[Rfam]
RNA sequence: CAUGGACCUGCCUUGGCAGGUGGCUAUGCCGGGCGCCUAUCCCUCGGCCAAUC
Numbered sequence: 001c002a003u004g005g006a007c008c009u010g011c012c013u014u015g016g017c018a019g020g021u022g023g024c025u026a027u028g029c030c031g032g033g034c035g036c037c038u039a040u041c042c043c044u045c046g047g048c049c050a051a052u053c
Stems, first nucleotide, its partner, number of pairs: 006021006028048006
Shown here is a 53-nucleotide RNA from Aurantimonas coralicida, a member of the family "sul1 RNA". By type it is a riboswitch.